A member of the RNA family "SAH (S-adenosyl-L-homocysteine) riboswitch aptamer" from Rhodoferax sediminis, 98 nucleotides long.
RNA sequence: ACUUCCGAGGAGCGUUGCAGUUCACACCAUGUGGACGAGGCUCGGACAGCAUGGCUUGCCAAACCCGGCGCGCCGUGCAUCAACUGCGCUCACCCACG
Numbered sequence: 001a002c003u004u005c006c007g008a009g010g011a012g013c014g015u016u017g018c019a020g021u022u023c024a025c026a027c028c029a030u031g032u033g034g035a036c037g038a039g040g041c042u043c044g045g046a047c048a049g050c051a052u053g054g055c056u057u058g059c060c061a062a063a064c065c066c067g068g069c070g071c072g073c074c075g076u077g078c079a080u081c082a083a084c085u086g087c088g089c090u091c092a093c094c095c096a097c098g
Base pairs, nucleotide, nucleotide: 004046005045006044007043008042021035022034023033024032025031026030
Rfam 15.1 lists 1,354 matches to the family in 1,132 species. It scores 50 bits against the family's covariance model.